RNA sequence: AGGGGGAGCACAGGAUCCUGGGCUGUGUCCCCAGCGCCCUGGGAUCCAGGGCCUGCGCUGGGAUGGCGCUCCCAGGGCCGCGCAGCCCCCU
Numbered sequence: 001a002g003g004g005g006g007a008g009c010a011c012a013g014g015a016u017c018c019u020g021g022g023c024u025g026u027g028u029c030c031c032c033a034g035c036g037c038c039c040u041g042g043g044a045u046c047c048a049g050g051g052c053c054u055g056c057g058c059u060g061g062g063a064u065g066g067c068g069c070u071c072c073c074a075g076g077g078c079c080g081c082g083c084a085g086c087c088c089c090c091u
Stems, first nucleotide, its partner, number of pairs: 001091006011082001013079002017076002020072003024068003028063002031061007041053001043052001045050001
Shown here is a 91-nucleotide sequence from Canis lupus, a member of the family "mir-8799 microRNA precursor family". Lineage of the source: Eukaryota > Gnathostomata > Mammalia > Carnivora > Canis lupus. The family is grouped with related families in Rfam's "mir-8791 microRNA precursor clan". Pairs were carried over by alignment from the consensus structure, which was predicted with RNAalifold. The family has 7 seed sequences and 20,638 matches in Rfam 15.1. The match comes from Rfam's covariance-model search (59 bits). Its family is annotated with miRNA-mediated post-transcriptional gene silencing and RISC complex in the Gene Ontology.